[Rfam]
RNA: Group II catalytic intron D1-D4-3
Organism: Frigoriglobus tundricola
RNA sequence: UCCGUCGCGAGGCGGAAUCGGAAGGAAGCCGAAGCCCCCAGCCGGGAGCCGACGAACAGGAACCGGAUACGAGCCACGCGUGGCGGGGUCAGCGGGCAACGGACCGCGAAGCCCGAUCUCACUCGAACGCACACGUGGGUAAACCGGCGGCCGCUCGACGAAGCAACGCAACUUAC
Numbered sequence: 001u002c003c004g005u006c007g008c009g010a011g012g013c014g015g016a017a018u019c020g021g022a023a024g025g026a027a028g029c030c031g032a033a034g035c036c037c038c039c040a041g042c043c044g045g046g047a048g049c050c051g052a053c054g055a056a057c058a059g060g061a062a063c064c065g066g067a068u069a070c071g072a073g074c075c076a077c078g079c080g081u082g083g084c085g086g087g088g089u090c091a092g093c094g095g096g097c098a099a100c101g102g103a104c105c106g107c108g109a110a111g112c113c114c115g116a117u118c119u120c121a122c123u124c125g126a127a128c129g130c131a132c133a134c135g136u137g138g139g140u141a142a143a144c145c146g147g148c149g150g151c152c153g154c155u156c157g158a159c160g161a162a163g164c165a166a167c168g169c170a171a172c173u174u175a176c
Stems, first nucleotide, its partner, number of pairs: 001016006028176001031173001036168001041159001043157004048151004063147004068142001074139002077135002080132003086114004092107004